[Rfam]
RNA sequence: GGUCACGAGUGCCAGCGCUAAACCCCGGUUUGCUGGCCGGCAACCCUCCUUUCGCGGCGGGGUGCCCCGGGUGACGACCAGGUCAGGCCGGAGCGGUCAUGGCAAGCGCGGACU
Numbered sequence: 001g002g003u004c005a006c007g008a009g010u011g012c013c014a015g016c017g018c019u020a021a022a023c024c025c026c027g028g029u030u031u032g033c034u035g036g037c038c039g040g041c042a043a044c045c046c047u048c049c050u051u052u053c054g055c056g057g058c059g060g061g062g063u064g065c066c067c068c069g070g071g072u073g074a075c076g077a078c079c080a081g082g083u084c085a086g087g088c089c090g091g092a093g094c095g096g097u098c099a100u101g102g103c104a105a106g107c108g109c110g111g112a113c114u
Stems, first nucleotide, its partner, number of pairs: 001079004009038001011037006021030002039066003044062003048057002082103004086098005

The family of this 114-nucleotide RNA sequence from Arthrobacter glacialis is "SAM (S-adenosyl methionine) riboswitch aptamer". The match comes from Rfam's covariance-model search (110 bits). Pairs were carried over by alignment from the consensus structure, which is taken from published work. The source organism's lineage runs through Bacteria, Actinomycetota, Micrococcales, Micrococcaceae and Arthrobacter. The family is grouped with related families in Rfam's "SAM clan".